A member of the RNA family "Plastid-ycf2 5UTR RNA" from Aegilops tauschii, 75 nucleotides long. It scores 82 bits against the family's covariance model. Rfam 15.1 lists 3,521 matches to the family in 417 species. NCBI's taxonomy places the organism under Eukaryota, Viridiplantae, Mesangiospermae, Poales, Aegilops tauschii.

RNA sequence: GUGCAUCCAGCAGGAAUUGAACCCGUAAAUCUACAAAUUAUGAGUUGUGCGCUCUAACCAUUCAGCCAUGGAUGU
Numbered sequence: 001g002u003g004c005a006u007c008c009a010g011c012a013g014g015a016a017u018u019g020a021a022c023c024c025g026u027a028a029a030u031c032u033a034c035a036a037a038u039u040a041u042g043a044g045u046u047g048u049g050c051g052c053u054c055u056a057a058c059c060a061u062u063c064a065g066c067c068a069u070g071g072a073u074g075u
Stems, first nucleotide, its partner, number of pairs: 003075006010026002013023002040069003044066004049061001051059001
Plastid ycf2 is a non-coding RNA (ncRNA) recognised in plastids.